[Rfam]
RNA sequence: AUGAGAGCAAGGGGAGAGACCUCCUUUGUGAGGCGCCGAAGGAGCAAGCAUAUGUGAAUCUCUCAGGCAAAAAGACUCUUGUUUGACG
Number, nucleotide and partner (000 for none) at each position: 001a000002u000003g000004a000005g000006a083007g082008c081009a080010a079011g078012g077013g076014g000015a000016g000017a000018g000019a000020c033021c032022u031023c030024c000025u000026u000027u000028g000029u000030g023031a022032g021033g020034c000035g068036c067037c066038g064039a063040a000041g000042g062043a061044g060045c000046a000047a000048g055049c054050a000051u000052a000053u000054g049055u048056g000057a000058a000059u000060c044061u043062c042063u039064c038065a000066g037067g036068c035069a000070a000071a000072a000073a000074g000075a000076c013077u012078c011079u010080u009081g008082u007083u006084u000085g000086a000087c000088g000
Shown here is an 88-nucleotide RNA from Aeribacillus pallidus, a member of the family "Glycine riboswitch aptamer". The base pairs follow the family's consensus structure.